[Rfam]
RNA sequence: AGGGCGUGCCUUUUCAGGCAUCCUCUCCCAAGACUUUCAAGGCCCGGUCCUCGUGACCGGGCCUUUUUCUUUGCCCGG
Numbered sequence: 001a002g003g004g005c006g007u008g009c010c011u012u013u014u015c016a017g018g019c020a021u022c023c024u025c026u027c028c029c030a031a032g033a034c035u036u037u038c039a040a041g042g043c044c045c046g047g048u049c050c051u052c053g054u055g056a057c058c059g060g061g062c063c064u065u066u067u068u069c070u071u072u073g074c075c076c077g078g
Stems, first nucleotide, its partner, number of pairs: 008019004041063009
Makes More Granules Regulator RNA (mmgR): a 78-nucleotide RNA sequence from Pelagerythrobacter marensis. The family has 87 seed sequences and 1,791 matches in Rfam 15.1. The organism belongs to Pelagerythrobacter, within Bacteria. By type it is a small RNA. The match comes from Rfam's covariance-model search (62 bits).